RNA sequence: GGGGACUUAGCUCAGGGGUAGAGCGCCUGAUUCGCAUUCAUGAGGUCGGGAGUUCGAUUCUCCCAGUCUCCA
Numbered sequence: 001g002g003g004g005a006c007u008u009a010g011c012u013c014a015g016g017g018g019u020a021g022a023g024c025g026c027c028u029g030a031u032u033c034g035c036a037u038u039c040a041u042g043a044g045g046u047c048g049g050g051a052g053u054u055c056g057a058u059u060c061u062c063c064c065a066g067u068c069u070c071c072a
Base pairs, nucleotide, nucleotide: 001071002070003069004068005067006066007065010024011023012022013021026042028040029039030038048064049063050062051061052060
Rfam assigns this 72-nucleotide RNA from a Methanosarcinales archaeon to the family "tRNA".